A member of the RNA family "Bacterial large signal recognition particle RNA" from Clostridium sp. CAG:43, 263 nucleotides long. Lineage of the source: Bacteria > Clostridia > Eubacteriales > Clostridiaceae > Clostridium. Rfam's curators write: The signal recognition particle (SRP) is a universally conserved ribonucleoprotein involved in the co-translational targeting of proteins to membranes. The family's RNA type in Rfam is non-coding RNA gene. Rfam links the family to the GO terms signal recognition particle, plasma membrane targeting and SRP-dependent cotranslational protein targeting to membrane, signal sequence recognition.
RNA sequence: CCGCACAGCCGGGGAGUUAGCGGUGCCCUGUACCUGCAAUCCGCUAUAGCAGGGGUGUUGUCCGACCGAGGGCGUUUUUACUGUGGGGCUGCCCCUGAAAAGUGGCGUUGAAGUCUGGGUCUUGCGCAACAGAAAUCUGUGAACCGUGUCAGGGCAGGAAUGCAGCAGCACUAAGCAGAAGCUUCUGUGUGCCGCAAGGCAGCCUGGACCGAGUUAACUGUCAGGGUAACGUCCAUGGCAUACGUUCGAAGCCGGGCGUGCGG
Numbered sequence: 001c002c003g004c005a006c007a008g009c010c011g012g013g014g015a016g017u018u019a020g021c022g023g024u025g026c027c028c029u030g031u032a033c034c035u036g037c038a039a040u041c042c043g044c045u046a047u048a049g050c051a052g053g054g055g056u057g058u059u060g061u062c063c064g065a066c067c068g069a070g071g072g073c074g075u076u077u078u079u080a081c082u083g084u085g086g087g088g089c090u091g092c093c094c095c096u097g098a099a100a101a102g103u104g105g106c107g108u109u110g111a112a113g114u115c116u117g118g119g120u121c122u123u124g125c126g127c128a129a130c131a132g133a134a135a136u137c138u139g140u141g142a143a144c145c146g147u148g149u150c151a152g153g154g155c156a157g158g159a160a161u162g163c164a165g166c167a168g169c170a171c172u173a174a175g176c177a178g179a180a181g182c183u184u185c186u187g188u189g190u191g192c193c194g195c196a197a198g199g200c201a202g203c204c205u206g207g208a209c210c211g212a213g214u215u216a217a218c219u220g221u222c223a224g225g226g227u228a229a230c231g232u233c234c235a236u237g238g239c240a241u242a243c244g245u246u247c248g249a250a251g252c253c254g255g256g257c258g259u260g261c262g263g
Base pairs, nucleotide, nucleotide: 001263002262003261004260005259006258008056009055010054011029012028013027014026016024017023018022033053034052035051036050037049061256062255063254064253066251070247071246072245073244074243077242079240081238082237083236084235085234086233090228091227094225095224096223097222098221102218103217104215105214106213113209114208115207116206117205118204119203120202121198122197123196124195125194126193127189128188130187131186132185133184134183136179137178138177139176140175146171147170148169149168154163155162156161